[Rfam]
RNA sequence: GACCGACAUCAGCGAUUCGUUCUGCGAACCGUUGCCGACGGCCAGGUAAGAGUGCAUGCCCAGCUCGCGCAUCUGCUGUUCGCCAAUCACGCGGGUGAUGACAUUUUUGCUGUACGCAUCCGCCAACUGACGCGCCUGAGAGGCAAGGUAGGCCGCGUUACAGAUGUUCGGCGGCAUAUUGCCGAGAUCUUUCGC
Numbered sequence: 001g002a003c004c005g006a007c008a009u010c011a012g013c014g015a016u017u018c019g020u021u022c023u024g025c026g027a028a029c030c031g032u033u034g035c036c037g038a039c040g041g042c043c044a045g046g047u048a049a050g051a052g053u054g055c056a057u058g059c060c061c062a063g064c065u066c067g068c069g070c071a072u073c074u075g076c077u078g079u080u081c082g083c084c085a086a087u088c089a090c091g092c093g094g095g096u097g098a099u100g101a102c103a104u105u106u107u108u109g110c111u112g113u114a115c116g117c118a119u120c121c122g123c124c125a126a127c128u129g130a131c132g133c134g135c136c137u138g139a140g141a142g143g144c145a146a147g148g149u150a151g152g153c154c155g156c157g158u159u160a161c162a163g164a165u166g167u168u169c170g171g172c173g174g175c176a177u178a179u180u181g182c183c184g185a186g187a188u189c190u191u192u193c194g195c
Base pairs, nucleotide, nucleotide: 005189006188012032013031014030016028017027018026019025020024034042035041050059062077063076064075078135079134081132082131084129085128087126091123092122093121094120095119096118097117099112100111102109103108136163137162138161140159141158143156144155167186168185169184170183171182172181
RNA: Yersinia sRNA 276
Organism: Trabulsiella odontotermitis